The record is a 131-nucleotide RNA from Vombatus ursinus, which matches "Small nucleolar RNA SNORA31" in Rfam. The family's RNA type in Rfam is H/ACA-box small nucleolar RNA. The literature on the family includes a 2001 paper in EMBO J by Huttenhofer et al., "RNomics: an experimental approach that identifies 201 candidates for novel, small, non-messenger RNAs in mouse". The family has 5 seed sequences and 2,094 matches in Rfam 15.1. From the family's description: ACA31 (SNORA31) belongs to the H/ACA class of snoRNAs which are thought to guide the sites of modification of uridines to pseudouridines. ACA31 is predicted to guide the pseudouridylation of U3713 in 28S rRNA and U218 in 18S rRNA. This family includes the mouse homologue snoMBI-161. Its family is annotated with nucleolus and RNA processing in the Gene Ontology.

[Rfam]
RNA sequence: AGGCAUCUCUCUGACAGACCUGGAGCAGUUAUCUCUGCUUUUAAGGUUUCCACUAAGAUGCAAGAAAAAUUUUCCUCGAGCUUUCUCUCUUCAUGAUUGUCGCUAUCUAGAUUGAAUAGUGAAAUACAAGA
Numbered sequence: 001a002g003g004c005a006u007c008u009c010u011c012u013g014a015c016a017g018a019c020c021u022g023g024a025g026c027a028g029u030u031a032u033c034u035c036u037g038c039u040u041u042u043a044a045g046g047u048u049u050c051c052a053c054u055a056a057g058a059u060g061c062a063a064g065a066a067a068a069a070u071u072u073u074c075c076u077c078g079a080g081c082u083u084u085c086u087c088u089c090u091u092c093a094u095g096a097u098u099g100u101c102g103c104u105a106u107c108u109a110g111a112u113u114g115a116a117u118a119g120u121g122a123a124a125u126a127c128a129a130g131a
Stems, first nucleotide, its partner, number of pairs: 003061006012052002016049005023040006073123001075121001077119001081114001084111003091105001094102002